Annotation:
This 162-nucleotide RNA sequence belongs to the Rfam family "DUF2800 RNA". The base pairs follow the family's consensus structure, which is taken from published work. The family's RNA type in Rfam is cis-regulatory element.

RNA sequence: CCGUCUCUUGAUGCAUCGACCGAUCACCGAUGGCUCACAUCACCUGACGGACAACUGAAUAUCCCAACAGCGAUCUGAUGAGCAAGAGAGCUGCAAUCCCGGAAUGGAGGGAACUCCUACAGGACUGCGGUCAGUUUACUAUUGCCAUUUUUGCGCUGUACC
Numbered sequence: 001c002c003g004u005c006u007c008u009u010g011a012u013g014c015a016u017c018g019a020c021c022g023a024u025c026a027c028c029g030a031u032g033g034c035u036c037a038c039a040u041c042a043c044c045u046g047a048c049g050g051a052c053a054a055c056u057g058a059a060u061a062u063c064c065c066a067a068c069a070g071c072g073a074u075c076u077g078a079u080g081a082g083c084a085a086g087a088g089a090g091c092u093g094c095a096a097u098c099c100c101g102g103a104a105u106g107g108a109g110g111g112a113a114c115u116c117c118u119a120c121a122g123g124a125c126u127g128c129g130g131u132c133a134g135u136u137u138a139c140u141a142u143u144g145c146c147a148u149u150u151u152u153g154c155g156c157u158g159u160a161c162c
Base pairs, nucleotide, nucleotide: 001050002049003048004047005046009042010041011040012039013038014032015031016030017029018028033083034082035081036080037079068158069157070156071155072154090131091130092129093128094127106117107116108115